The record is a 248-nucleotide RNA sequence from Aspergillus ustus, which matches "Small nucleolar RNA snR191" in Rfam. It scores 48 bits against the family's covariance model. The family's consensus secondary structure was predicted with WAR. It is annotated as an H/ACA-box small nucleolar RNA. Rfam links the family to the GO terms RNA processing and nucleolus. The source organism's lineage runs through Eukaryota, Ascomycota, Pezizomycotina, Eurotiomycetes and Aspergillus subgen. Nidulantes.

RNA sequence: UGCCAUCGCUAAGUCAAGUCUACUUCCGGUGACCUCGAGUUAUCCGUUUUCCUCAAUGGAAGUAUUGUCUGUUACAGCUUUGGCAGAUUGACGCUGGUCCGCGCCGAAUUUCAUUCUGAAGCUAGGCUGAUUGGUUUUCGUUUUGAAAGCCGAUCGUUAAGGACUAAGCAGUGUUUUGUUUUUGAGUUGAGAAAUGCUCGCCAUUCUGGCCUUUCAUAGCAGUUCUCUUAGUAACAUUUCACACAUCC
Numbered sequence: 001u002g003c004c005a006u007c008g009c010u011a012a013g014u015c016a017a018g019u020c021u022a023c024u025u026c027c028g029g030u031g032a033c034c035u036c037g038a039g040u041u042a043u044c045c046g047u048u049u050u051c052c053u054c055a056a057u058g059g060a061a062g063u064a065u066u067g068u069c070u071g072u073u074a075c076a077g078c079u080u081u082g083g084c085a086g087a088u089u090g091a092c093g094c095u096g097g098u099c100c101g102c103g104c105c106g107a108a109u110u111u112c113a114u115u116c117u118g119a120a121g122c123u124a125g126g127c128u129g130a131u132u133g134g135u136u137u138u139c140g141u142u143u144u145g146a147a148a149g150c151c152g153a154u155c156g157u158u159a160a161g162g163a164c165u166a167a168g169c170a171g172u173g174u175u176u177u178g179u180u181u182u183u184g185a186g187u188u189g190a191g192a193a194a195u196g197c198u199c200g201c202c203a204u205u206c207u208g209g210c211c212u213u214u215c216a217u218a219g220c221a222g223u224u225c226u227c228u229u230a231g232u233a234a235c236a237u238u239u240c241a242c243a244c245a246u247c248c
Base pairs, nucleotide, nucleotide: 003083004082005081017070018069020067022063023062024061025060026059027058029043030042031041032040033039094171095170096169098167103127104126105125107123109121110120111119112118129155130154131153132152133151134150135149136148137147138146139145140144173242174241178237179236181234189227190226191225192224195221196220197219198218200210201209